Purine riboswitch aptamer: a 99-nucleotide sequence from Paenibacillus nanensis. The organism belongs to Paenibacillus, within Bacteria. Gene Ontology term of the family: purine nucleobase biosynthetic process. The family's consensus secondary structure is taken from published work.
RNA sequence: GCCGCCCAAUAAGAAUAAUCUCGUAUAUAUUCGGGACAGGCCCGAAUGUUUCUACCCGGAAACCUUAAUUUCUGGACUACGAGCUUAAUGAAUCAGCUG
Numbered sequence: 001g002c003c004g005c006c007c008a009a010u011a012a013g014a015a016u017a018a019u020c021u022c023g024u025a026u027a028u029a030u031u032c033g034g035g036a037c038a039g040g041c042c043c044g045a046a047u048g049u050u051u052c053u054a055c056c057c058g059g060a061a062a063c064c065u066u067a068a069u070u071u072c073u074g075g076a077c078u079a080c081g082a083g084c085u086u087a088a089u090g091a092a093u094c095a096g097c098u099g
Base pairs, nucleotide, nucleotide: 018085020083021082022081023080024079025078029047030046031045032044033043034042035041056075057074058073059072060071061070062069